[Rfam]
RNA: Selenocysteine transfer RNA
RNA sequence: GGAGGCGAAUGUGUCCUGGUGGGUGCCCUGGACUUCAAAUCCAGUGGGGGGCAGUAUAGGCUGUCUCCGGUGGGUUCGAUUCCCACACGCCUCC
Numbered sequence: 001g002g003a004g005g006c007g008a009a010u011g012u013g014u015c016c017u018g019g020u021g022g023g024u025g026c027c028c029u030g031g032a033c034u035u036c037a038a039a040u041c042c043a044g045u046g047g048g049g050g051g052c053a054g055u056a057u058a059g060g061c062u063g064u065c066u067c068c069g070g071u072g073g074g075u076u077c078g079a080u081u082c083c084c085a086c087a088c089g090c091c092u093c094c
Stems, first nucleotide, its partner, number of pairs: 001094007011026006028044005047068007071085004